[Rfam]
RNA sequence: UCCAUCGUGAGGUGCGAACUGAAGGAAGUGUGUAGUGAAAUCUUGGCUCGAUGAACAAAAACUAGAUAUCAAGGCAUGAUAAACGGAUAAGAUUACUAAACAAAUUGAAGUCCAAAAGAUGAGCGUAACUUUAUCAUGUAAAUCUAGCGAGUAUGAGAGGAAAGUUAUAUGU
Numbered sequence: 001u002c003c004a005u006c007g008u009g010a011g012g013u014g015c016g017a018a019c020u021g022a023a024g025g026a027a028g029u030g031u032g033u034a035g036u037g038a039a040a041u042c043u044u045g046g047c048u049c050g051a052u053g054a055a056c057a058a059a060a061a062c063u064a065g066a067u068a069u070c071a072a073g074g075c076a077u078g079a080u081a082a083a084c085g086g087a088u089a090a091g092a093u094u095a096c097u098a099a100a101c102a103a104a105u106u107g108a109a110g111u112c113c114a115a116a117a118g119a120u121g122a123g124c125g126u127a128a129c130u131u132u133a134u135c136a137u138g139u140a141a142a143u144c145u146a147g148c149g150a151g152u153a154u155g156a157g158a159g160g161a162a163a164g165u166u167a168u169a170u171g172u
Base pairs, nucleotide, nucleotide: 001016003014004013005012006011028172029171030170031169032168035165036164041158042157043156044155045154046152047151048150049149050148062147063146064145065144066143067142074139075138076137078135079134080133081132082131083130085113086112087111088110091106092105093104094103
Overview
Rfam assigns this 172-nucleotide RNA from Haloplasma contractile to the family "Group II catalytic intron D1-D4-3".